[Rfam]
RNA sequence: UUUUCGCACUCUGGAGAGCGGCAGUAGCGUGCAGUGCACGCAGGCUGCCCACCGAAGGGGCGCGCGCUUACCGUGGCAACGUCAGUUGUGUUAACGGUAGCGCAAUCUCUCAGGUAUCGAGGACAGAGGGGGCAUG
Numbered sequence: 001u002u003u004u005c006g007c008a009c010u011c012u013g014g015a016g017a018g019c020g021g022c023a024g025u026a027g028c029g030u031g032c033a034g035u036g037c038a039c040g041c042a043g044g045c046u047g048c049c050c051a052c053c054g055a056a057g058g059g060g061c062g063c064g065c066g067c068u069u070a071c072c073g074u075g076g077c078a079a080c081g082u083c084a085g086u087u088g089u090g091u092u093a094a095c096g097g098u099a100g101c102g103c104a105a106u107c108u109c110u111c112a113g114g115u116a117u118c119g120a121g122g123a124c125a126g127a128g129g130g131g132g133c134a135u136g
Stems, first nucleotide, its partner, number of pairs: 007130001009128005020049006051115003054111002058109003064103005
The family of this 136-nucleotide RNA sequence from Paraburkholderia humisilvae is "Glycine riboswitch aptamer". A search with the family's covariance model found it, with a score of 44 bits. NCBI's taxonomy places the organism under Bacteria, Pseudomonadati, Betaproteobacteria, Burkholderiaceae, Paraburkholderia.